[Rfam]
RNA sequence: ACUGCUUUUCUUUGAUGUCCCCAAAUUGAGGAGCCCGAUCGUCCCGCCUUUUAGGUUCAAGACUUUCGGGUUUUUUAUU
Number, nucleotide and partner (000 for none) at each position: 001a000002c000003u000004g000005c000006u000007u000008u000009u000010c000011u000012u000013u000014g000015a000016u000017g000018u000019c000020c000021c000022c000023a000024a000025a000026u000027u000028g000029a000030g000031g000032a072033g071034c070035c069036c068037g067038a066039u000040c000041g063042u062043c061044c000045c000046g000047c000048c000049u000050u000051u000052u000053a000054g000055g000056u000057u000058c000059a000060a000061g043062a042063c041064u000065u000066u038067c037068g036069g035070g034071u033072u032073u000074u000075u000076u000077a000078u000079u000
A member of the RNA family "RybB RNA" from Acerihabitans arboris, 79 nucleotides long. A reference for the family is Wassarman et al. (2001), "Identification of novel small RNAs using comparative genomics and microarrays", Genes Dev. This ncRNA was identified in a large scale screen of E. coli. Taxonomically the source falls in Acerihabitans (Bacteria, Pseudomonadota, Enterobacterales, Pectobacteriaceae). Rfam classes the family as a small RNA.